[Rfam]
Source information:
SR1 sRNA: a 204-nucleotide RNA from Bacillus atrophaeus. Pairs were carried over by alignment from the consensus structure, which is taken from published work. For this family Rfam cites "In vitro analysis of the interaction between the small RNA SR1 and its primary target ahrC mRNA" (Heidrich et al., Nucleic Acids Res, 2007). Gene Ontology terms of the family: negative regulation of translational initiation and translation repressor activity, mRNA regulatory element binding.

RNA sequence: AACAAAAGAAAUUAAGCGUUUUCAAAAAAAGAGAAAUGGGGAAUGAGAGAUGGGAACGAUUGUUUGCCAAGACUGUAACGAAGCCAUUCAUUACUUUGAGGAUGAGAAGGUUACAACGUUUUAUGGAACGUGCUGCGGACAAUGUCAGUGUCAUCUUGAAGAAGAAUAAUAAAAGCAUGCGGUGUAAAAGCCGCAUGCUUUUUU
Numbered sequence: 001a002a003c004a005a006a007a008g009a010a011a012u013u014a015a016g017c018g019u020u021u022u023c024a025a026a027a028a029a030a031g032a033g034a035a036a037u038g039g040g041g042a043a044u045g046a047g048a049g050a051u052g053g054g055a056a057c058g059a060u061u062g063u064u065u066g067c068c069a070a071g072a073c074u075g076u077a078a079c080g081a082a083g084c085c086a087u088u089c090a091u092u093a094c095u096u097u098g099a100g101g102a103u104g105a106g107a108a109g110g111u112u113a114c115a116a117c118g119u120u121u122u123a124u125g126g127a128a129c130g131u132g133c134u135g136c137g138g139a140c141a142a143u144g145u146c147a148g149u150g151u152c153a154u155c156u157u158g159a160a161g162a163a164g165a166a167u168a169a170u171a172a173a174a175g176c177a178u179g180c181g182g183u184g185u186a187a188a189a190g191c192c193g194c195a196u197g198c199u200u201u202u203u204u
Base pairs, nucleotide, nucleotide: 016111017110019109020108021107022106025103030097031096032095033094035092036091037090051086052085053084057080058079063078064077138152139151140150141149171202172201173200174199175198176197177196178195179194180193181192182191183190